[Rfam]
RNA sequence: UGCGUUUUUCGCCCAGGCGGAGCUCGACCGCCGUUUGCAGGCCUGCGGGGGCGAGUUGAUCUGCACAGUCUUGCAGAUUGCCCCG
Numbered sequence: 001u002g003c004g005u006u007u008u009u010c011g012c013c014c015a016g017g018c019g020g021a022g023c024u025c026g027a028c029c030g031c032c033g034u035u036u037g038c039a040g041g042c043c044u045g046c047g048g049g050g051g052c053g054a055g056u057u058g059a060u061c062u063g064c065a066c067a068g069u070c071u072u073g074c075a076g077a078u079u080g081c082c083c084c085g
Stems, first nucleotide, its partner, number of pairs: 016032005046085005057080002060077006
Dot-bracket structure: ...............(((((.......))))).............(((((......((.((((((......)))))).)))))))
This 85-nucleotide RNA from Zoogloea oleivorans belongs to the Rfam family "ALIL pseudoknot".
Rfam classes the family as a cis-regulatory element.
The family's consensus secondary structure is taken from published work.